[Rfam]
Shown here is an 80-nucleotide sequence from Eubacteriaceae bacterium CHKCI004, a member of the family "pan motif". A search with the family's covariance model found it, with a score of 44 bits. The source organism's lineage runs through Bacteria, Bacillati, Bacillota, Clostridia and Eubacteriaceae.
Nucleotides: 080
Base pairs, nucleotide, nucleotide: 001028002027003026004024005023006022007021008020010019011018050076051075052074053072054071055070056069057068059067060066061065
Number, partner (000 for none) and nucleotide at each position: 001028u002027g003026g004024a005023u006022g007021g008020u009000a010019u011018u012000c013000g014000g015000a016000a017000g018011a019010a020008a021007c022006c023005a024004u025000a026003c027002c028001g029000c030000g031000u032000g033000c034000a035000g036000c037000a038000c039000g040000g041000a042000u043000a044000a045000a046000u047000a048000u049000u050076g051075a052074g053072c054071u055070u056069a057068u058000a059067u060066c061065c062000a063000u064000g065061g066060g067059a068057a069056u070055g071054a072053g073000a074052c075051u076050c077000g078000g079000a080000g